[Rfam]
RNA sequence: GUCAUACUACGGUGCAAUCCCCUGUAAAGUAAACGAUGACCCCCAGGGAACUCCAGGUUAAAAUACGUAUCAAAAUGCGAAAUACGACUAGCCUGAAGCUUUGCUUCGGGGUAGUUUUCUUU
Numbered sequence: 001g002u003c004a005u006a007c008u009a010c011g012g013u014g015c016a017a018u019c020c021c022c023u024g025u026a027a028a029g030u031a032a033a034c035g036a037u038g039a040c041c042c043c044c045a046g047g048g049a050a051c052u053c054c055a056g057g058u059u060a061a062a063a064u065a066c067g068u069a070u071c072a073a074a075a076u077g078c079g080a081a082a083u084a085c086g087a088c089u090a091g092c093c094u095g096a097a098g099c100u101u102u103g104c105u106u107c108g109g110g111g112u113a114g115u116u117u118u119c120u121u122u
Base pairs, nucleotide, nucleotide: 001040002039003038004037005036010035011034014030015029041048042047057071059069060068087115088114089113090112092110093109094108095107096106097105
Shown here is a 122-nucleotide sequence from Mangrovibacter sp. MFB070, a member of the family "Enterobacteria greA leader". The match comes from Rfam's covariance-model search (110 bits). By type it is a cis-regulatory leader. The literature on the family includes a 2010 paper in Genome Biol by Naville and Gautheret, "Premature terminator analysis sheds light on a hidden world of bacterial transcriptional attenuation". The base pairs follow the family's consensus structure, which is taken from published work.